About this RNA:
The record is a 108-nucleotide RNA from Serratia rubidaea, which matches "tp2" in Rfam. A search with the family's covariance model found it, with a score of 91 bits. By type it is a small RNA.
RNA sequence: GGUAUUCCUUAUCUGUCUAAUGGUUUAUUUGGAGCCUGUCUUCCUGCGCUCUGCGGCAAAGCGCACGAAGACAGGCUCAUCAGUUUAGUUGCCGCUAAAGUGCUUAAC
Number, nucleotide and partner (000 for none) at each position: 001g093002g092003u091004a090005u000006u000007c000008c000009u000010u000011a000012u000013c000014u000015g000016u000017c000018u000019a000020a084021u082022g081023g080024u000025u000026u000027a000028u000029u000030u000031g000032g078033a077034g076035c075036c074037u073038g072039u071040c070041u000042u000043c067044c000045u065046g064047c063048g000049c061050u060051c000052u058053g057054c000055g000056g000057c053058a052059a000060a050061g049062c000063g047064c046065a045066c000067g043068a000069a000070g040071a039072c038073a037074g036075g035076c034077u033078c032079a000080u023081c022082a021083g000084u020085u000086u000087a000088g000089u000090u004091g003092c002093c001094g000095c000096u000097a000098a000099a000100g000101u000102g000103c000104u000105u000106a000107a000108c000